[Rfam]
ROOL RNA: a 609-nucleotide sequence.
Firmicutes, Fusobacteria (1 example), Tenericutes (1 example).
The family's RNA type in Rfam is small RNA.
RNA sequence: ACGUUUUACUAUGAUUACAAUAAACUCAGUUAAGAUCGGCUAACCACCGUGCUGAGAAUAUGCGUAUAUCGACAGAUGGUUAUAUGGGAUUGCUUUAUAACUGUUUGUUCCAAAAUACCGUGAGAUAUAUUAGGAUAGUGGGAAAAUCCCUAAAGAUAAGCAUAUGUACUGAGGGUAAACGUAGUCAAAUGCUAUCCACUUAUCGUUGACACAAUAGAGAGCUGCACUUGCAGUGCUUAACCCUGAUGCCUGUGACUUGGUAACUCAUAGGAGUUAGGUAGGGGAAUACCAAAAUAAGUCAAUUUGCCGUGAUGGUUUGGAAACAGACCUAUAAGAUAAGUCAGAUGAUGGAGUAGCCAAAGGCAGUAGAAGAAUAAUUUUUUAAUUUAGAUAGUAAAUUCAGGUAAGUUUACAUAUCAAAUUACAACUUCUGAAUGGUUGGUGAAACUUGUGGCGUGACCAAUCCCACCGAUGCGGAGACAGGUGUAUUCCUGUUGGUUAAAAAGUGUAUGAAUGACGGUUUAUAUGCUCAGAUUUAGCUAUAUCGUGGCAGAAUAUGAUUGCGUUUAUCGAGGCAGCCCGAAGGGGUUAUUGUAAUCAUAAUAAAGC
Numbered sequence: 001a002c003g004u005u006u007u008a009c010u011a012u013g014a015u016u017a018c019a020a021u022a023a024a025c026u027c028a029g030u031u032a033a034g035a036u037c038g039g040c041u042a043a044c045c046a047c048c049g050u051g052c053u054g055a056g057a058a059u060a061u062g063c064g065u066a067u068a069u070c071g072a073c074a075g076a077u078g079g080u081u082a083u084a085u086g087g088g089a090u091u092g093c094u095u096u097a098u099a100a101c102u103g104u105u106u107g108u109u110c111c112a113a114a115a116u117a118c119c120g121u122g123a124g125a126u127a128u129a130u131u132a133g134g135a136u137a138g139u140g141g142g143a144a145a146a147u148c149c150c151u152a153a154a155g156a157u158a159a160g161c162a163u164a165u166g167u168a169c170u171g172a173g174g175g176u177a178a179a180c181g182u183a184g185u186c187a188a189a190u191g192c193u194a195u196c197c198a199c200u201u202a203u204c205g206u207u208g209a210c211a212c213a214a215u216a217g218a219g220a221g222c223u224g225c226a227c228u229u230g231c232a233g234u235g236c237u238u239a240a241c242c243c244u245g246a247u248g249c250c251u252g253u254g255a256c257u258u259g260g261u262a263a264c265u266c267a268u269a270g271g272a273g274u275u276a277g278g279u280a281g282g283g284g285a286a287u288a289c290c291a292a293a294a295u296a297a298g299u300c301a302a303u304u305u306g307c308c309g310u311g312a313u314g315g316u317u318u319g320g321a322a323a324c325a326g327a328c329c330u331a332u333a334a335g336a337u338a339a340g341u342c343a344g345a346u347g348a349u350g351g352a353g354u355a356g357c358c359a360a361a362g363g364c365a366g367u368a369g370a371a372g373a374a375u376a377a378u379u380u381u382u383u384a385a386u387u388u389a390g391a392u393a394g395u396a397a398a399u400u401c402a403g404g405u406a407a408g409u410u411u412a413c414a415u416a417u418c419a420a421a422u423u424a425c426a427a428c429u430u431c432u433g434a435a436u437g438g439u440u441g442g443u444g445a446a447a448c449u450u451g452u453g454g455c456g457u458g459a460c461c462a463a464u465c466c467c468a469c470c471g472a473u474g475c476g477g478a479g480a481c482a483g484g485u486g487u488a489u490u491c492c493u494g495u496u497g498g499u500u501a502a503a504a505a506g507u508g509u510a511u512g513a514a515u516g517a518c519g520g521u522u523u524a525u526a527u528g529c530u531c532a533g534a535u536u537u538a539g540c541u542a543u544a545u546c547g548u549g550g551c552a553g554a555a556u557a558u559g560a561u562u563g564c565g566u567u568u569a570u571c572g573a574g575g576c577a578g579c580c581c582g583a584a585g586g587g588g589u590u591a592u593u594g595u596a597a598u599c600a601u602a603a604u605a606a607a608g609c
Stems, first nucleotide, its partner, number of pairs: 007606001010603001016597001020593001025056005037049003058165006072108006079101006086094002109135003112131002115128003119124001140150004174590001175571001178568002184562001194346003198341007205303006224236004241284004249271004254266002258291004304366005314329005350448001356443005430534004454467001471546003474495004498541001500539001502537002505535001506530001508527003512523004578589004